[Rfam]
RNA sequence: UCCAAAGCCACACACUUCCUUACAUUCCAUAGCACAGUAAUCCCUAUGGGGAUAUAAAGAAGCAUGUGGCCCGGGG
Number, nucleotide and partner (000 for none) at each position: 001u000002c000003c000004a000005a000006a000007g070008c069009c068010a067011c066012a065013c000014a000015c062016u061017u060018c059019c000020u057021u056022a055023c000024a053025u052026u000027c049028c048029a047030u046031a045032g000033c000034a000035c000036a000037g000038u000039a000040a000041u000042c000043c000044c000045u031046a030047u029048g028049g027050g000051g000052a025053u024054a000055u022056a021057a020058a000059g018060a017061a016062g015063c000064a000065u012066g011067u010068g009069g008070c007071c000072c000073g000074g000075g000076g000
RNA: mir-1 microRNA precursor family
Organism: Dipodomys ordii